Shown here is a 263-nucleotide sequence from Olea europaea, a member of the family "RNase MRP".
About the family: RNase MRP is an enzymatically active ribonucleoprotein with two distinct roles in eukaryotes. In mitochondria it plays a direct role in the initiation of mitochondrial DNA replication. In the nucleus it is involved in precursor rRNA processing, where it cleaves the internal transcribed spacer 1 between 18S and 5.8S rRNAs. Despite distinct functions, RNase MRP has been shown to be evolutionarily related to RNase P. Like eukaryotic RNase P, RNase MRP is not catalytically active without associated protein subunits.
A reference for the family is Schmitt et al. (1993), "Secondary structure of RNase MRP RNA as predicted by phylogenetic comparison", FASEB J.
The organism belongs to Olea europaea, within Eukaryota.
RNA sequence: CCGCCACGAAACGGAGUGAACGGGGUAUGAACCUGCAUCGGGCUGGUUCAAGCCCCAGGAAAGUCCCCGGGCCAUGAAUUGCAGAGAUGCAAACCCAGGAACGGGUGGCCUCCGUGUCAACGGGCAAUAUUGCCACCGUGCAAUGGGCUGAGACGUGUGUGGAGCCCUAAUUGCCCAAGAUCGGAGUUCUUUGGCCGAUUAUAUCACAGUCAUUCACUUGGUCCUAAUGCGGCUAACUGAACGGGGCUUACGAUUUCGUGGUG
Numbered sequence: 001c002c003g004c005c006a007c008g009a010a011a012c013g014g015a016g017u018g019a020a021c022g023g024g025g026u027a028u029g030a031a032c033c034u035g036c037a038u039c040g041g042g043c044u045g046g047u048u049c050a051a052g053c054c055c056c057a058g059g060a061a062a063g064u065c066c067c068c069g070g071g072c073c074a075u076g077a078a079u080u081g082c083a084g085a086g087a088u089g090c091a092a093a094c095c096c097a098g099g100a101a102c103g104g105g106u107g108g109c110c111u112c113c114g115u116g117u118c119a120a121c122g123g124g125c126a127a128u129a130u131u132g133c134c135a136c137c138g139u140g141c142a143a144u145g146g147g148c149u150g151a152g153a154c155g156u157g158u159g160u161g162g163a164g165c166c167c168u169a170a171u172u173g174c175c176c177a178a179g180a181u182c183g184g185a186g187u188u189c190u191u192u193g194g195c196c197g198a199u200u201a202u203a204u205c206a207c208a209g210u211c212a213u214u215c216a217c218u219u220g221g222u223c224c225u226a227a228u229g230c231g232g233c234u235a236a237c238u239g240a241a242c243g244g245g246g247c248u249u250a251c252g253a254u255u256u257c258g259u260g261g262u263g
Stems, first nucleotide, its partner, number of pairs: 002263010014219006022056004033045001035043001061249003065246004080091004111124005127191001134186001136184003145176004155165002158162001221233003225229001